[Rfam]
RNA sequence: UUCUUAUCCAGAGAGGUGGAGGGACUGGCCCUUUGAAGCCUCGGCAGCAGACUUUUAGUACUGUGCCAAUUCCAGAUGCAGCAUAGCAUAAAGAUAAGAA
Numbered sequence: 001u002u003c004u005u006a007u008c009c010a011g012a013g014a015g016g017u018g019g020a021g022g023g024a025c026u027g028g029c030c031c032u033u034u035g036a037a038g039c040c041u042c043g044g045c046a047g048c049a050g051a052c053u054u055u056u057a058g059u060a061c062u063g064u065g066c067c068a069a070u071u072c073c074a075g076a077u078g079c080a081g082c083a084u085a086g087c088a089u090a091a092a093g094a095u096a097a098g099a100a
Stems, first nucleotide, its partner, number of pairs: 001100008013042005021031003025075004043067004048063002051059003071092001076089004
RNA: SAM riboswitch aptamer (S box leader)
Organism: Virgibacillus salexigens